RNA: Archaeal small subunit ribosomal RNA, nucleotides 1 to 504
Nucleotides: 504
Stems, first nucleotide, its partner, number of pairs: 004020005022494010033382009042340001048338003052335003057080003062077002065074003087293003097217007106210002111206007119153004128143006158185008167177002191198002219265003226256003231253008268290004272283004295316006318329004346372001348371003354367005385405008410430007437483006450477004459466002
Number, partner (000 for none) and nucleotide at each position: 001000a002000c003000u004020c005019c006018g007017g008016u009000c010000g011000a012000u013000c014000c015000u016008g017007c018006c019005g020004g021000c022494g023493g024492u025491c026490a027489c028488u029487g030486c031485u032000a033382u034381c035380a036379g037378g038377u039376u040375c041374c042340g043000a044000c045000u046000a047000a048338g049337c050336c051000a052335u053334g054333c055000a056000a057080g058079u059078c060000a061000u062077g063076g064000g065074g066073c067072c068000g069000u070000a071000a072067g073066g074065c075000a076063c077062c078059g079058g080057c081000g082000a083000a084000c085000a086000g087293c088292u089291c090000a091000g092000u093000a094000a095000c096000a097217c098216g099215u100214g101213g102212a103211u104000a105000a106210u107209u108000u109000a110000c111206c112205c113204u114203c115202a116201g117200g118000c119153g120152g121151g122150g123000c124000a125000u126000a127000a128143c129142c130141u131140c132139g133138g134000g135000a136000a137000a138133c139132u140131g141130a142129g143128g144000c145000u146000a147000a148000u149000u150122c151121c152120c153119c154000a155000u156000a157000g158185u159184c160183a161182u162181u163180a164179c165178a166000a167177a168176c169000u170000g171000g172000a173000a174000u175000g176168g177167u178165u179164g180163u181162a182161a183160u184159g185158a186000u187000g188000a189000a190000a191198g192197c193000u194000u195000c196000u197192g198191c199000a200117c201116c202115u203114g204113a205112g206111g207000a208000u209107a210106a211103g212102u213101c214100u215099g216098c217097g218000g219265c220264c221263u222000a223000u224000c225000a226256g227255g228254u229000a230000g231253u232252a233251g234250g235249u236248g237247g238246u239000g240000u241000a242000a243000a244000g245000g246238a247237c248236c249235a250234c251233c252232u253231a254228g255227c256226c257000u258000a259000a260000g261000a262000c263221g264220g265219g266000u267000a268290c269289g270288g271287g272283c273282c274281c275280u276000g277000a278000a279000a280275g281274g282273g283272g284000g285000a286000g287271c288270c289269c290268g291089g292088a293087g294000a295316u296315g297314g298313a299312c300311u301000c302000u303000g304000a305000g306000a307000c308000a309000a310000c311300a312299g313298u314297c315296c316295a317000g318329g319328c320327c321326c322000u323000a324000c325000g326321g327320g328319g329318c330000g331000c332000a333054g334053c335052a336050g337049g338048c339000g340042c341000g342000a343000a344000a345000a346372c347000u348371g349370u350369g351000c352000a353000a354367u355366g356365c357364g358363c359000g360000a361000a362000a363358g364357c365356g366355c367354g368000a369350c370349a371348c372346g373000g374041g375040g376039a377038g378037c379036c380035u381034g382033a383000g384000u385405g386404c387403c388402u389401u390400g391399a392398c393000u394000u395000u396000u397000u398392g399391u400390c401389a402388a403387g404386g405385c406000u407000u408000u409000u410430c411429u412428g413427a414426u415425g416424c417000c418000u419000a420000a421000a422000a423000a424416g425415c426414a427413u428412c429411a430410g431000g432000a433000a434000u435000a436000a437483g438482g439481g440480c441479u442478g443000g444000g445000c446000a447000a448000g449000a450477c451476g452475g453474g454000u455000g456000c457000c458000a459466g460465c461000c462000g463000c464000c465460g466459c467000g468000g469000u470000a471000a472000c473000a474453c475452c476451c477450g478442c479441a480440g481439c482438u483437c484000g485031a486030g487029u488028g489027g490026u491025g492024a493023u494022c495000a496000c497000u498000u499000u500000u501000a502000u503000u504000g